[Rfam]
RNA sequence: GCCGGUCCUCGGUAGUGGCCCCCGGGGAGAAGCCCCGGGUGCUUCGAUCGAAGACCGGC
Numbered sequence: 001g002c003c004g005g006u007c008c009u010c011g012g013u014a015g016u017g018g019c020c021c022c023c024g025g026g027g028a029g030a031a032g033c034c035c036c037g038g039g040u041g042c043u044u045c046g047a048u049c050g051a052a053g054a055c056c057g058g059c
Base pairs, nucleotide, nucleotide: 001059002058003057004056005055006054007053009051010050011049012048013047017043018042019041021039022038023037024036025035026034027033

A member of the RNA family "Actino-pnp RNA" from Streptomyces sp. DSM 40868, 59 nucleotides long. Rfam classes the family as a cis-regulatory element. It scores 67 bits against the family's covariance model. NCBI's taxonomy places the organism under Bacteria, Actinomycetota, Actinomycetes, Kitasatosporales, Streptomyces.